[Rfam]
RNA sequence: UAUUAGGUUGGUGCAAACAUAAUUGUGGUUCUUGCCAUUACUUCCAAUGGCAAAAACCACAAUUAUGUUUGCACCAACCUAAUA
Dot-bracket structure: ((((((((((((((((((((((((((((((.((((((((......)))))))).))))))))))))))))))))))))))))))
This 84-nucleotide RNA sequence from Macaca fascicularis belongs to the Rfam family "mir-548 microRNA precursor family".
Gene Ontology terms of the family: miRNA-mediated post-transcriptional gene silencing and RISC complex.
A search with the family's covariance model found it, with a score of 91 bits.